[Rfam]
RNA: A. fumigatus sRNA Afu_309
Organism: Aspergillus cristatus
Nucleotides: 302
Stems, first nucleotide, its partner, number of pairs: 018144005024138002026076006033069004037063003042057006084136002087133001092121002095118003155222002161219006177207004183203003187199002189196002227295003230290005243279005250273003255265004
Number, partner (000 for none) and nucleotide at each position: 001000c002000c003000u004000u005000c006000u007000u008000c009000a010000a011000c012000a013000c014000a015000c016000a017000c018144g019143g020142a021141u022140c023000c024138g025137u026076g027075u028074c029073c030072a031071g032000c033069g034068a035067u036066c037063c038062c039061g040000u041000u042057c043056a044055c045054a046053g047052a048000u049000u050000u051000a052047u053046c054045u055044g056043u057042g058000u059000u060000u061039c062038g063037g064000u065000u066036g067035a068034u069033u070000a071031c072030u073029g074028g075027g076026c077000a078000g079000u080000u081000c082000g083000a084136c085135g086000u087133u088000a089000u090000u091000c092121g093120g094000a095118g096117c097116c098000a099000u100000c101000a102000c103000c104000u105000u106000u107000u108000g109000u110000g111000u112000g113000g114000a115000u116097g117096g118095u119000u120093u121092u122000u123000u124000g125000g126000c127000a128000a129000u130000c131000c132000g133087g134000u135085c136084g137025a138024c139000a140022g141021a142020u143019c144018u145000c146000a147000g148000a149000u150000u151000a152000a153000a154000u155222g156221c157000c158000a159000g160000c161219u162218u163217c164216a165215g166214g167000u168000g169000u170000u171000c172000a173000c174000u175000c176000u177207g178206g179205u180204c181000u182000u183203g184202a185201g186000c187199u188198c189196c190195c191000u192000u193000u194000u195190g196189g197000u198188g199187a200000a201185c202184u203183c204180g205179g206178c207177u208000g209000g210000a211000g212000a213000g214166c215165c216164u217163g218162g219161g220000u221156g222155c223000u224000g225000g226000c227295g228294g229293c230290g231289u232288c233287a234286u235000a236000u237000u238000c239000c240000u241000g242000a243279u244278c245277c246276c247275u248000u249000c250273g251272c252271u253000g254000a255265g256264g257263c258262c259000g260000u261000c262258g263257g264256c265255u266000g267000g268000u269000g270000a271252a272251g273250u274000u275247a276246g277245g278244g279243a280000a281000a282000a283000a284000c285000c286234a287233u288232g289231a290230c291000a292000a293229g294228c295227c296000a297000a298000c299000a300000u301000a302000c